Shown here is an 85-nucleotide RNA from Trema andersonii, a member of the family "small nucleolar RNA snoR127". It is annotated as a C/D-box small nucleolar RNA. Its family is annotated with RNA processing and nucleolus in the Gene Ontology. The literature on the family includes a 2009 paper in Nucleic Acids Res by Chen and Wu, "Mining small RNA sequencing data: a new approach to identify small nucleolar RNAs in Arabidopsis". Lineage of the source: Eukaryota > Viridiplantae > Tracheophyta > Spermatophyta > Trema. The match comes from Rfam's covariance-model search (56 bits).
[Rfam]
RNA sequence: CUGGAAUGAUGCAACUUAGCCAAAUCAGACAUUGAUGUGCUCCAAUAGGCAUAUAUAUAUAUAUAUAUAUUGGCACCAAUCCAGU
Dot-bracket structure: ((((............................................................................)))).
Numbered sequence: 001c002u003g004g005a006a007u008g009a010u011g012c013a014a015c016u017u018a019g020c021c022a023a024a025u026c027a028g029a030c031a032u033u034g035a036u037g038u039g040c041u042c043c044a045a046u047a048g049g050c051a052u053a054u055a056u057a058u059a060u061a062u063a064u065a066u067a068u069a070u071u072g073g074c075a076c077c078a079a080u081c082c083a084g085u
Stems, first nucleotide, its partner, number of pairs: 001084004